This 72-nucleotide RNA sequence from Paracoccus tibetensis belongs to the Rfam family "tRNA". Pairs were carried over by alignment from the consensus structure, which is taken from published work. Rfam classes the family as a transfer RNA.
[Rfam]
RNA sequence: GGCCCGUUAGCUCAGUGGUAGAGCGUCCCGUUUACACCGGGCCGGUCGGGAGUUCGAAUCUCUCACGGGCCA
Number, nucleotide and partner (000 for none) at each position: 001g071002g070003c069004c068005c067006g066007u065008u000009a000010g024011c023012u022013c021014a000015g000016u000017g000018g000019u000020a000021g013022a012023g011024c010025g000026u000027c041028c040029c039030g038031u000032u000033u000034a000035c000036a000037c000038c030039g029040g028041g027042c000043c000044g000045g000046u000047c000048g064049g063050g062051a061052g060053u000054u000055c000056g000057a000058a000059u000060c052061u051062c050063u049064c048065a007066c006067g005068g004069g003070c002071c001072a000